[Rfam]
RNA: Plant small nucleolar RNA U3
Organism: Chara braunii
RNA sequence: ACGAUUGUACUUGAACAGGAUCUGUUCUGUAGGUCAUACACUGUUCUGUAUUUACGAAUACAGAUGACUCGUCAAACCUGGAUGAUGAGAGGAGACUUCCACUGUUGAGCGCGAAUGUUAGGGGGGUUGAGAGCUUUGGCUUUCACCCACCGUCGAUGAACGCAUCCUGCGGCGUUGGCUAAGGGUUAGUGCGGUGGGAGCGCGCUGACGGGUA
Numbered sequence: 001a002c003g004a005u006u007g008u009a010c011u012u013g014a015a016c017a018g019g020a021u022c023u024g025u026u027c028u029g030u031a032g033g034u035c036a037u038a039c040a041c042u043g044u045u046c047u048g049u050a051u052u053u054a055c056g057a058a059u060a061c062a063g064a065u066g067a068c069u070c071g072u073c074a075a076a077c078c079u080g081g082a083u084g085a086u087g088a089g090a091g092g093a094g095a096c097u098u099c100c101a102c103u104g105u106u107g108a109g110c111g112c113g114a115a116u117g118u119u120a121g122g123g124g125g126g127u128u129g130a131g132a133g134c135u136u137u138g139g140c141u142u143u144c145a146c147c148c149a150c151c152g153u154c155g156a157u158g159a160a161c162g163c164a165u166c167c168u169g170c171g172g173c174g175u176u177g178g179c180u181a182a183g184g185g186u187u188a189g190u191g192c193g194g195u196g197g198g199a200g201c202g203c204g205c206u207g208a209c210g211g212g213u214a
Stems, first nucleotide, its partner, number of pairs: 001037001003034001005033002013027006042067001045064001047062006076213005096200010109163003119152001122151002125148002128145007166185003171180003